[Rfam]
RNA: purD RNA motif
Organism: Sulfurimonas gotlandica
RNA sequence: GUAGAGUUCUUGUGUGUCGGUGUCAUCGUUUGAGAUAUGUUAACUCUAUCGAGAUGAUGCUGCCGUUAGAGAACACUCUCUUCACCCAAAUUCGGCUUUUAGAACCGAGCCAAUUGCGAAACGGCUACUUGGGC
Number, nucleotide and partner (000 for none) at each position: 001g000002u000003a077004g076005a000006g074007u073008u072009c071010u070011u000012g000013u000014g000015u000016g000017u000018c062019g061020g060021u059022g058023u000024c056025a055026u054027c053028g000029u000030u000031u000032g000033a000034g050035a049036u048037a047038u000039g000040u000041u000042a000043a000044c000045u000046c000047u037048a036049u035050c034051g000052a000053g027054a026055u025056g024057a000058u022059g021060c020061u019062g018063c000064c000065g000066u000067u000068a000069g000070a010071g009072a008073a007074c006075a000076c004077u003078c000079u000080c000081u000082u000083c000084a000085c000086c000087c000088a000089a000090a000091u000092u109093c000094g000095g106096c000097u104098u103099u000100u000101a000102g000103a098104a097105c000106c095107g000108a000109g092110c000111c000112a000113a000114u000115u000116g000117c000118g000119a000120a000121a000122c000123g000124g000125c000126u000127a000128c000129u000130u000131g000132g000133g000134c000